[Rfam]
RNA sequence: ACACCAUCCAGAGCGGUCGAGAGUCCUGGCUCGUUGACACCGCAGCAACCCCCCAACGGAAGCCUCCCGCGGGUACGGGUGCUACAGCCAGGUUCGAUGGAGC
Numbered sequence: 001a002c003a004c005c006a007u008c009c010a011g012a013g014c015g016g017u018c019g020a021g022a023g024u025c026c027u028g029g030c031u032c033g034u035u036g037a038c039a040c041c042g043c044a045g046c047a048a049c050c051c052c053c054c055a056a057c058g059g060a061a062g063c064c065u066c067c068c069g070c071g072g073g074u075a076c077g078g079g080u081g082c083u084a085c086a087g088c089c090a091g092g093u094u095c096g097a098u099g100g101a102g103c
Base pairs, nucleotide, nucleotide: 002102004100005099006098007097008096013043014042015041016040017039021032022031023030026091027090028089029088044083045082046081047080049079050078052073053072054071087095
The record is a 103-nucleotide sequence from Oerskovia sp. Root918, which matches "SAM riboswitch aptamer (S box leader)" in Rfam.
About the family: The SAM riboswitch is found upstream of a number of genes which code for proteins involved in methionine or cysteine biosynthesis in Gram-positive bacteria.
The organism belongs to Oerskovia, within Bacteria.
Gene Ontology term of the family: regulation of gene expression.
It scores 50 bits against the family's covariance model.